[Rfam]
RNA: Vault RNA
RNA sequence: GGGCCGGCUAUAGCCCAGCGGUUCCUUCGGCUGCCUGUUGUCGUCUUUCGAUCCCCUGCCUCGGCGGGGGUUCGAGUCCCGCGGGCACCCCUGGCCUACUU
Numbered sequence: 001g002g003g004c005c006g007g008c009u010a011u012a013g014c015c016c017a018g019c020g021g022u023u024c025c026u027u028c029g030g031c032u033g034c035c036u037g038u039u040g041u042c043g044u045c046u047u048u049c050g051a052u053c054c055c056c057u058g059c060c061u062c063g064g065c066g067g068g069g070g071u072u073c074g075a076g077u078c079c080c081g082c083g084g085g086c087a088c089c090c091c092u093g094g095c096c097u098a099c100u101u
Stems, first nucleotide, its partner, number of pairs: 002096006013086004018082004026076005